A member of the RNA family "rydB RNA" from Klebsiella pneumoniae, 61 nucleotides long. The base pairs follow the family's consensus structure, which was predicted with RNAalifold. The source organism's lineage runs through Bacteria, Enterobacterales, Klebsiella, Klebsiella pneumoniae complex and Klebsiella pneumoniae subsp. pneumoniae.

[Rfam]
RNA sequence: GCCCCUUCAAGAGCUAAGCCAUCAUGAGUGCCGGAGAUAAGCGCCGGAUGGGGUCCGCCAG
Numbered sequence: 001g002c003c004c005c006u007u008c009a010a011g012a013g014c015u016a017a018g019c020c021a022u023c024a025u026g027a028g029u030g031c032c033g034g035a036g037a038u039a040a041g042c043g044c045c046g047g048a049u050g051g052g053g054u055c056c057g058c059c060a061g
Base pairs, nucleotide, nucleotide: 002053003052004051005050013029014028015027031047032046033045034044036042
Rfam classes the family as a small RNA. For this family Rfam cites "Identification of novel small RNAs using comparative genomics and microarrays" (Wassarman et al., Genes Dev, 2001). From the family's description: This family consists of several bacterial sequences from E. coli, Shigella flexneri and Salmonella species. This RNA gene was discovered by an RNA screen between the ydiC and ydiH in E. coli. This gene is only 67 bases in length and is composed of a hairpin like structure. The function of this RNA is unknown.